Small nucleolar RNA SNORD63: a 74-nucleotide RNA sequence from Callipepla squamata.
[Rfam]
RNA sequence: GUGCCGUGAUGUAAUGUCAACACAUCAUUCUGAAGAGGAAUUGUGUGGAGACCUUCUGUGCUCAGUUGAGCACA
Numbered sequence: 001g002u003g004c005c006g007u008g009a010u011g012u013a014a015u016g017u018c019a020a021c022a023c024a025u026c027a028u029u030c031u032g033a034a035g036a037g038g039a040a041u042u043g044u045g046u047g048g049a050g051a052c053c054u055u056c057u058g059u060g061c062u063c064a065g066u067u068g069a070g071c072a073c074a
Base pairs, nucleotide, nucleotide: 001073002072003071004070
Its family is annotated with RNA processing and nucleolus in the Gene Ontology. Taxonomically the source falls in Callipepla (Eukaryota, Euteleostomi, Amniota, Galloanserae). It is annotated as a C/D-box small nucleolar RNA. About the family: snoRNA U63 is found in both humans and mice.